[Rfam]
RNA sequence: CUUGGGGUGGAGGGUCCCUCAGCCCGGAUUGCGAGAGGGUGCAGGCCAGGCUGAAGGACCCCAGUGGUGCAGG
Numbered sequence: 001c002u003u004g005g006g007g008u009g010g011a012g013g014g015u016c017c018c019u020c021a022g023c024c025c026g027g028a029u030u031g032c033g034a035g036a037g038g039g040u041g042c043a044g045g046c047c048a049g050g051c052u053g054a055a056g057g058a059c060c061c062c063a064g065u066g067g068u069g070c071a072g073g
Stems, first nucleotide, its partner, number of pairs: 003071002006068001008066002012061006019054006026047002029044005
Dot-bracket structure: ..((.(.((..((((((.((((((.((.(((((......))))).)).)))))).))))))...)).).))..

This 73-nucleotide RNA from Myotis lucifugus belongs to the Rfam family "mir-9193 microRNA precursor family".
Rfam links the family to the GO terms RISC complex and miRNA-mediated post-transcriptional gene silencing.
The family's consensus secondary structure was predicted with RNAalifold.
A search with the family's covariance model found it, with a score of 70 bits.